RNA sequence: ACCCCGGUAUUAUUGCUGUUAUGGGUUUGAAUCGAGCUUAGCCUUGUUCAUUUUUUUACACAACACCCCCGUAAAAAAUACAACACGGCCCGCUCAAGCCUGCGGUGCCCAAGCCGUUCAAAGCGGAAAAAACGCCCCGAAAAGCCCCAAAAAAGCCGUCACGGCGCUUUUUUAGGGCAA
Numbered sequence: 001a002c003c004c005c006g007g008u009a010u011u012a013u014u015g016c017u018g019u020u021a022u023g024g025g026u027u028u029g030a031a032u033c034g035a036g037c038u039u040a041g042c043c044u045u046g047u048u049c050a051u052u053u054u055u056u057u058a059c060a061c062a063a064c065a066c067c068c069c070c071g072u073a074a075a076a077a078a079u080a081c082a083a084c085a086c087g088g089c090c091c092g093c094u095c096a097a098g099c100c101u102g103c104g105g106u107g108c109c110c111a112a113g114c115c116g117u118u119c120a121a122a123g124c125g126g127a128a129a130a131a132a133c134g135c136c137c138c139g140a141a142a143a144g145c146c147c148c149a150a151a152a153a154a155g156c157c158g159u160c161a162c163g164g165c166g167c168u169u170u171u172u173u174a175g176g177g178c179a180a
Base pairs, nucleotide, nucleotide: 023101024100025099026098027097028096034093036091041089042088043087044085046084047083048082052078053077054076055075056074057073058072059071164178165177167175
Source information:
This 180-nucleotide RNA sequence belongs to the Rfam family "Pseudomonas sRNA P1". By type it is a non-coding RNA gene. On this family, see Livny et al., Nucleic Acids Res 2006: "Identification of 17 Pseudomonas aeruginosa sRNAs and prediction of sRNA-encoding genes in 10 diverse pathogens using the bioinformatic tool sRNAPredict2". This small RNA (sRNA) was computationally identified in the genome of the opportunistic pathogen Pseudomonas aeruginosa and its expression verified by northern blot analysis. There appears to be two related copies of P1 sRNA in the P.aeruginosa PA01 genome and both copies appear to be located upstream of predicted glutamine synthetase genes. Pairs were carried over by alignment from the consensus structure, which was predicted with RNAalifold.